Rfam assigns this 110-nucleotide RNA sequence from Amphibacillus xylanus to the family "SAM riboswitch aptamer (S box leader)". A search with the family's covariance model found it, with a score of 87 bits.
RNA sequence: UUCUUAUCCAGAGAGACUGAGGGAUUGGCCCAGUGACGUCUCAGCAACCACCUUGUGUAGAGCAAGGAACGGUGCUAAUUCCAAAUAGGCAACUGCCUAGAAGAUAAGAA
Numbered sequence: 001u002u003c004u005u006a007u008c009c010a011g012a013g014a015g016a017c018u019g020a021g022g023g024a025u026u027g028g029c030c031c032a033g034u035g036a037c038g039u040c041u042c043a044g045c046a047a048c049c050a051c052c053u054u055g056u057g058u059a060g061a062g063c064a065a066g067g068a069a070c071g072g073u074g075c076u077a078a079u080u081c082c083a084a085a086u087a088g089g090c091a092a093c094u095g096c097c098u099a100g101a102a103g104a105u106a107a108g109a110a
Stems, first nucleotide, its partner, number of pairs: 001110008013042005021031003025085001026083003043076004048072002051067005080102001086099005